[Rfam]
RNA: Vault RNA
RNA sequence: GGGCCAGCUUAGCCUAGUGGUUACUUCAGAAAAUCUUUGCAGAUUCACCAGUUGCUUAAUGGCAGUUCGAUACUCCGCGGGGCGCUGUAUGUUGUUUUG
Numbered sequence: 001g002g003g004c005c006a007g008c009u010u011a012g013c014c015u016a017g018u019g020g021u022u023a024c025u026u027c028a029g030a031a032a033a034u035c036u037u038u039g040c041a042g043a044u045u046c047a048c049c050a051g052u053u054g055c056u057u058a059a060u061g062g063c064a065g066u067u068c069g070a071u072a073c074u075c076c077g078c079g080g081g082g083c084g085c086u087g088u089a090u091g092u093u094g095u096u097u098u099g
Stems, first nucleotide, its partner, number of pairs: 003093001005091002012083004017078004026070002029067001